The record is a 132-nucleotide RNA from Alteromonas hispanica, which matches "Gammaprotebacteria rimP leader" in Rfam. The match comes from Rfam's covariance-model search (53 bits). Gene Ontology term of the family: regulation of gene expression. For this family Rfam cites "Premature terminator analysis sheds light on a hidden world of bacterial transcriptional attenuation" (Naville and Gautheret, Genome Biol, 2010).

[Rfam]
RNA sequence: UUUCUAAGACGUUAUGUAUGGGUUCAGAAUUACAACAAAAAGCCCCGCUAGUCCGGGGCUUUUUGUUGUAUUAAAACCUAGAGAAAUUCGUUUUUCUUAGGUGAUGACAGGUGGGCUUUAUGCCCUUUUUUU
Numbered sequence: 001u002u003u004c005u006a007a008g009a010c011g012u013u014a015u016g017u018a019u020g021g022g023u024u025c026a027g028a029a030u031u032a033c034a035a036c037a038a039a040a041a042g043c044c045c046c047g048c049u050a051g052u053c054c055g056g057g058g059c060u061u062u063u064u065g066u067u068g069u070a071u072u073a074a075a076a077c078c079u080a081g082a083g084a085a086a087u088u089c090g091u092u093u094u095u096c097u098u099a100g101g102u103g104a105u106g107a108c109a110g111g112u113g114g115g116c117u118u119u120a121u122g123c124c125c126u127u128u129u130u131u132u
Base pairs, nucleotide, nucleotide: 039062040061041060042059043058044057045056046055047054113125114124115123116122